[Rfam]
The family of this 91-nucleotide sequence from Streptomyces zinciresistens is "Streptomyces RNA 3202". From the family's description: Identified by deep sequencing of transcriptome at the end of exponential growth phase. Appears smaller on northern blot than sequencing transcript. This indicates processing step. The pairing is the family consensus, mapped onto this sequence.
RNA sequence: CCAAGUCCCGGAGCACUCCCCCCGGCGCCGGGACUUUCCCAGAGCCGGGCUUCGGCGCCUGUCCCCCCUGGUGCCGGGGCCCGGCUCCACG
Numbered sequence: 001c002c003a004a005g006u007c008c009c010g011g012a013g014c015a016c017u018c019c020c021c022c023c024g025g026c027g028c029c030g031g032g033a034c035u036u037u038c039c040c041a042g043a044g045c046c047g048g049g050c051u052u053c054g055g056c057g058c059c060u061g062u063c064c065c066c067c068c069u070g071g072u073g074c075c076g077g078g079g080c081c082c083g084g085c086u087c088c089a090c091g
Base pairs, nucleotide, nucleotide: 005034006033007032008031009030010029013026014025042087043086044085045084046083047082048081049080050079051078053076054075055074056073057072058071059070061068